[Rfam]
RNA sequence: UGCAGCCGUGUCAAAUUCGGUCCCUGCCUGCUCGAUGGUGGGGGCCGGCCCUACAGCUGCCACAUCAGACUUGUAGUUCAUGGGCCCCUGGUCCAUGUUGUUGGACCUGGGGAUAAAAAAAAUGCUACAUACAUGG
Numbered sequence: 001u002g003c004a005g006c007c008g009u010g011u012c013a014a015a016u017u018c019g020g021u022c023c024c025u026g027c028c029u030g031c032u033c034g035a036u037g038g039u040g041g042g043g044g045c046c047g048g049c050c051c052u053a054c055a056g057c058u059g060c061c062a063c064a065u066c067a068g069a070c071u072u073g074u075a076g077u078u079c080a081u082g083g084g085c086c087c088c089u090g091g092u093c094c095a096u097g098u099u100g101u102u103g104g105a106c107c108u109g110g111g112g113a114u115a116a117a118a119a120a121a122a123u124g125c126u127a128c129a130u131a132c133a134u135g136g
Base pairs, nucleotide, nucleotide: 002060003059004058005057018047019046020045021044022043023042024041025040026039027038028037073128074127075126076125077122078121085112086111087110089109090108
RNA: Small nucleolar RNA SNORA5
Organism: Python bivittatus